[Rfam]
RNA sequence: CCCCUUCUCCCACCAACAGACCUGUGUCUUGCUGUCCCGUCCACCUUACGGGGUGUGUUCGGUCGAUAUCUUGACAGUUCGUCCGAUCUAUGGAGCCAUCAAAUUCCCAUGAUGUCAAUUUCCGGUCGACAGGUCUCAAAGCGAGUUGGCGCGUCCUUUUCCUGCCUGAGUUCGCCUUUGGCUGAGCUCGGUGGGCGAGGCGUGCCUGGGCGACUGAUUCCUGAUCCCUUUGCUGAGGCCGUCGGCUGGUGAAGGCGGGGACAAACCCAGUCCUGCCUACAUUC
Numbered sequence: 001c002c003c004c005u006u007c008u009c010c011c012a013c014c015a016a017c018a019g020a021c022c023u024g025u026g027u028c029u030u031g032c033u034g035u036c037c038c039g040u041c042c043a044c045c046u047u048a049c050g051g052g053g054u055g056u057g058u059u060c061g062g063u064c065g066a067u068a069u070c071u072u073g074a075c076a077g078u079u080c081g082u083c084c085g086a087u088c089u090a091u092g093g094a095g096c097c098a099u100c101a102a103a104u105u106c107c108c109a110u111g112a113u114g115u116c117a118a119u120u121u122c123c124g125g126u127c128g129a130c131a132g133g134u135c136u137c138a139a140a141g142c143g144a145g146u147u148g149g150c151g152c153g154u155c156c157u158u159u160u161c162c163u164g165c166c167u168g169a170g171u172u173c174g175c176c177u178u179u180g181g182c183u184g185a186g187c188u189c190g191g192u193g194g195g196c197g198a199g200g201c202g203u204g205c206c207u208g209g210g211c212g213a214c215u216g217a218u219u220c221c222u223g224a225u226c227c228c229u230u231u232g233c234u235g236a237g238g239c240c241g242u243c244g245g246c247u248g249g250u251g252a253a254g255g256c257g258g259g260g261a262c263a264a265a266c267c268c269a270g271u272c273c274u275g276c277c278u279a280c281a282u283u284c
Base pairs, nucleotide, nucleotide: 018136019135020134021133022132023131024130025129026075027074028073031070033068034067035066036065037062038061039060041057042055043054044052046051084128085127086126087125088124091117092116093115095113097111148206149205150204163193164192165191166190168189169188170187171186172185173184174182175181209277210276211275212272213271214270215269216268225261226260227259228258229257233254234253237247238246239245240244
The record is a 284-nucleotide RNA sequence from Amniculicola lignicola, which matches "A. fumigatus sRNA Afu_309" in Rfam. The base pairs follow the family's consensus structure, which was predicted with WAR. A reference for the family is Jochl et al. (2008), "Small ncRNA transcriptome analysis from Aspergillus fumigatus suggests a novel mechanism for regulation of protein synthesis", Nucleic Acids Res.